[Rfam]
RNA sequence: GGUCAAUAAUGAAAAUAGCCAAAUCUGAGCAUCAAAAGACCUUCCAGUCUACCUGAUGUAUGAUCUCUAUAGUUCUGAGA
Numbered sequence: 001g002g003u004c005a006a007u008a009a010u011g012a013a014a015a016u017a018g019c020c021a022a023a024u025c026u027g028a029g030c031a032u033c034a035a036a037a038g039a040c041c042u043u044c045c046a047g048u049c050u051a052c053c054u055g056a057u058g059u060a061u062g063a064u065c066u067c068u069a070u071a072g073u074u075c076u077g078a079g080a
Stems, first nucleotide, its partner, number of pairs: 029059005037050004
RNA: Small nucleolar RNA U2-19
Organism: Myotis lucifugus